FMN riboswitch aptamer (RFN element): a 205-nucleotide RNA sequence from Paenibacillus sp. YN15.
It scores 100 bits against the family's covariance model.
Taxonomically the source falls in Paenibacillus (Bacteria, Bacillota, Bacilli, Caryophanales).
RNA sequence: AGUUACUUUCGGGGCAGGGUGAAAUUCCCUACCGGCGGUGAUCCGUAAGGCUUGAGGAGGGCGGCAGCUACAACCUCGGCCUGCCGGUCAGUCCGUGACCCGGUGAAGCUGGCAGGCACUGCCCGGCGCGUUCCUUGCGCCGUUCACCGGAGGACUUGGUGCAACUCCAAGACCGACAGUAUAGUCUGGAUGGGAGAAAGUGAUU
Numbered sequence: 001a002g003u004u005a006c007u008u009u010c011g012g013g014g015c016a017g018g019g020u021g022a023a024a025u026u027c028c029c030u031a032c033c034g035g036c037g038g039u040g041a042u043c044c045g046u047a048a049g050g051c052u053u054g055a056g057g058a059g060g061g062c063g064g065c066a067g068c069u070a071c072a073a074c075c076u077c078g079g080c081c082u083g084c085c086g087g088u089c090a091g092u093c094c095g096u097g098a099c100c101c102g103g104u105g106a107a108g109c110u111g112g113c114a115g116g117c118a119c120u121g122c123c124c125g126g127c128g129c130g131u132u133c134c135u136u137g138c139g140c141c142g143u144u145c146a147c148c149g150g151a152g153g154a155c156u157u158g159g160u161g162c163a164a165c166u167c168c169a170a171g172a173c174c175g176a177c178a179g180u181a182u183a184g185u186c187u188g189g190a191u192g193g194g195a196g197a198a199a200g201u202g203a204u205u
Stems, first nucleotide, its partner, number of pairs: 003203008017029003031185002033175002035096004100150008155171005177188003